Overview
This 75-nucleotide sequence from Photinus pyralis belongs to the Rfam family "mir-190 microRNA precursor family". Pairs were carried over by alignment from the consensus structure, which was predicted with RNAalifold. Rfam links the family to the GO terms RISC complex and miRNA-mediated post-transcriptional gene silencing. The literature on the family includes a 2006 paper in Nucleic Acids Res by Kloosterman et al., "Cloning and expression of new microRNAs from zebrafish". Taxonomically the source falls in Photinus (Eukaryota, Opisthokonta, Ecdysozoa, Lampyrinae). Rfam 15.1 lists 1,667 matches to the family in 854 species. The match comes from Rfam's covariance-model search (74 bits).

[Rfam]
RNA sequence: AUUACUGUAAGAUAUGUUUGAUAUUCUUGGUUGUUGUUUUGAUCACCCAGGAGUCAAACAUAUUAUUACAGUGGU
Numbered sequence: 001a002u003u004a005c006u007g008u009a010a011g012a013u014a015u016g017u018u019u020g021a022u023a024u025u026c027u028u029g030g031u032u033g034u035u036g037u038u039u040u041g042a043u044c045a046c047c048c049a050g051g052a053g054u055c056a057a058a059c060a061u062a063u064u065a066u067u068a069c070a071g072u073g074g075u
Stems, first nucleotide, its partner, number of pairs: 005071005011064012024051002029048002032045002